[Rfam]
RNA: mir-16 microRNA precursor family
Nucleotides: 079
Base pairs, nucleotide, nucleotide: 001079002078003077005075006074007073011069012068013067014066015065016064017063018062022058023057024056025055026054027053028052029051
Number, partner (000 for none) and nucleotide at each position: 001079g002078c003077a004000u005075a006074u007073a008000a009000a010000u011069a012068g013067u014066a015065g016064c017063a018062u019000a020000u021000a022058a023057a024056u025055a026054g027053u028052a029051g030000c031000a032000u033000a034000u035000a036000a037000a038000u039000a040000u041000u042000u043000a044000u045000a046000u047000g048000u049000g050000g051029c052028u053027a054026c055025u056024a057023u058022u059000u060000a061000u062018a063017u064016g065015c066014u067013a068012c069011u070000a071000u072000u073007u074006a075005u076000a077003u078002g079001c